[Rfam]
RNA sequence: UUGACAUCUCCGGCAAGGAUCUUCCAAAGCUCACAAAGUCUGUGUUGUCAUCACCUUUGUCUCUGCUUGAACAUCAGAGAUCGGAGUUGAAAAACAACACAACAUUU
Numbered sequence: 001u002u003g004a005c006a007u008c009u010c011c012g013g014c015a016a017g018g019a020u021c022u023u024c025c026a027a028a029g030c031u032c033a034c035a036a037a038g039u040c041u042g043u044g045u046u047g048u049c050a051u052c053a054c055c056u057u058u059g060u061c062u063c064u065g066c067u068u069g070a071a072c073a074u075c076a077g078a079g080a081u082c083g084g085a086g087u088u089g090a091a092a093a094a095c096a097a098c099a100c101a102a103c104a105u106u107u
Stems, first nucleotide, its partner, number of pairs: 041101007053088001055086004060080004
RNA: Small nucleolar RNA snoR97